[Rfam]
The family of this 81-nucleotide RNA sequence from Paspalum vaginatum is "Small nucleolar RNA R160". It is annotated as a C/D-box small nucleolar RNA. For this family Rfam cites "The high diversity of snoRNAs in plants: identification and comparative study of 120 snoRNA genes from Oryza sativa" (Chen et al., Nucleic Acids Res, 2003). About the family: snoR160 is a C/D box small nucleolar RNA, which acts as a methylation guide for 25S ribosomal RNA in plants. snoR160 has been alternatively named snoZ270 in rice. Rfam links the family to the GO terms RNA processing and nucleolus.
RNA sequence: GGCAAAAUGAGGAAGCUAUACCAUCUGAAACUGAUGUACUGUUGAUUAUUCUCGGAUGGUCUUCAAAGUUCUCUGAUUGCU
Numbered sequence: 001g002g003c004a005a006a007a008u009g010a011g012g013a014a015g016c017u018a019u020a021c022c023a024u025c026u027g028a029a030a031c032u033g034a035u036g037u038a039c040u041g042u043u044g045a046u047u048a049u050u051c052u053c054g055g056a057u058g059g060u061c062u063u064c065a066a067a068g069u070u071c072u073c074u075g076a077u078u079g080c081u
Stems, first nucleotide, its partner, number of pairs: 001081005